This 83-nucleotide sequence from Sesamum indicum belongs to the Rfam family "Small nucleolar RNA R21". The family's consensus secondary structure was predicted with PFOLD. On this family, see Barneche et al., J Mol Biol 2001: "Identification of 66 box C/D snoRNAs in Arabidopsis thaliana: extensive gene duplications generated multiple isoforms predicting new ribosomal RNA 2'-O-methylation sites". Rfam classes the family as a C/D-box small nucleolar RNA.
RNA sequence: CAUCCCCGUGAUGAUAUUUUCCACAAUUUUAACGUUAAAAGUAGACUGAAAUCCCUUGAUGAGAGAAUUGGUUCUGAGGGAUG
Numbered sequence: 001c002a003u004c005c006c007c008g009u010g011a012u013g014a015u016a017u018u019u020u021c022c023a024c025a026a027u028u029u030u031a032a033c034g035u036u037a038a039a040a041g042u043a044g045a046c047u048g049a050a051a052u053c054c055c056u057u058g059a060u061g062a063g064a065g066a067a068u069u070g071g072u073u074c075u076g077a078g079g080g081a082u083g
Base pairs, nucleotide, nucleotide: 001083002082003081004080005079006078